Annotation:
The record is a 122-nucleotide RNA sequence from Vitreoscilla filiformis, which matches "Burkholderia RNA 11" in Rfam. For this family Rfam cites "Experimental identification of small non-coding regulatory RNAs in the opportunistic human pathogen Burkholderia cenocepacia J2315" (Ramos et al., Genomics, 2013). Rfam's curators write: Co-purified with Hfq, expression confirmed by Northern blot. Predicted target marZ. Overlaps coding sequence. The family's consensus secondary structure was predicted with RNAfold.
[Rfam]
RNA sequence: ACAACCUGCGUCUGGCGCAUGAGCAGUUGGCGGUGUUUCGCUCGUUGUUGGGUAUUUCGUGGAUGUGGUUCUUUGGCGCGGUGUUUUUGGCGCAGUUUCCGUCGUUUGCCAAAGAGGUGUUG
Numbered sequence: 001a002c003a004a005c006c007u008g009c010g011u012c013u014g015g016c017g018c019a020u021g022a023g024c025a026g027u028u029g030g031c032g033g034u035g036u037u038u039c040g041c042u043c044g045u046u047g048u049u050g051g052g053u054a055u056u057u058c059g060u061g062g063a064u065g066u067g068g069u070u071c072u073u074u075g076g077c078g079c080g081g082u083g084u085u086u087u088u089g090g091c092g093c094a095g096u097u098u099c100c101g102u103c104g105u106u107u108g109c110c111a112a113a114g115a116g117g118u119g120u121u122g
Base pairs, nucleotide, nucleotide: 010049012047014045017042021038022037023036024035025034051121052120053119054118055117057115058114060112062110063105064104065103067099068098071095072094074092075091077089078088080087081086